RNA: mir-214 microRNA precursor family
RNA sequence: GUUCCAGUGUUGUGGUGUGUCUGCCUGUCUACACUUGCUGUGCAGACUCUCUGCUCCUGUACAGCAGGCACAGACAGGCAGACAGAUGGCAGCCCCGCA
Numbered sequence: 001g002u003u004c005c006a007g008u009g010u011u012g013u014g015g016u017g018u019g020u021c022u023g024c025c026u027g028u029c030u031a032c033a034c035u036u037g038c039u040g041u042g043c044a045g046a047c048u049c050u051c052u053g054c055u056c057c058u059g060u061a062c063a064g065c066a067g068g069c070a071c072a073g074a075c076a077g078g079c080a081g082a083c084a085g086a087u088g089g090c091a092g093c094c095c096c097g098c099a
Stems, first nucleotide, its partner, number of pairs: 018084002022080009034068001036066006043059003